[Rfam]
RNA sequence: UACAAGGGGAAGGCAAAUGAGAAACGUUCUCAGGAUGUCUUCUGAUGAUUUGCCGCCGAACGUAUAUAAGGGGGCAUUGCCUUGA
Numbered sequence: 001u002a003c004a005a006g007g008g009g010a011a012g013g014c015a016a017a018u019g020a021g022a023a024a025c026g027u028u029c030u031c032a033g034g035a036u037g038u039c040u041u042c043u044g045a046u047g048a049u050u051u052g053c054c055g056c057c058g059a060a061c062g063u064a065u066a067u068a069a070g071g072g073g074g075c076a077u078u079g080c081c082u083u084g085a
Base pairs, nucleotide, nucleotide: 008043009042010041011040012039013038016028017027018026052075053074054073056071057070060067
RNA: GA-cis RNA
Organism: bacterium D16-54